RNA sequence: CUUGACAAGUAGAAGCCAUCCGCUUCUCACCUUACAACGCAUUAGCAGUUCGUAAGGUUCUGUAAACCCUUGUUUACGCUUUAUUGCGGGUGGUUUAUGCCAUCCGUUUUUUGUUUGGCAG
Numbered sequence: 001c002u003u004g005a006c007a008a009g010u011a012g013a014a015g016c017c018a019u020c021c022g023c024u025u026c027u028c029a030c031c032u033u034a035c036a037a038c039g040c041a042u043u044a045g046c047a048g049u050u051c052g053u054a055a056g057g058u059u060c061u062g063u064a065a066a067c068c069c070u071u072g073u074u075u076a077c078g079c080u081u082u083a084u085u086g087c088g089g090g091u092g093g094u095u096u097a098u099g100c101c102a103u104c105c106g107u108u109u110u111u112u113g114u115u116u117g118g119c120a121g
Stems, first nucleotide, its partner, number of pairs: 011027006029058003036050003039046002086107009
Dot-bracket structure: ..........((((((.....)))))).(((....(((((....)).))).....)))...........................(((((((((....)))))))))..............

Shown here is a 121-nucleotide RNA from Thermosinus carboxydivorans, a member of the family "Ribosomal protein L20 leader".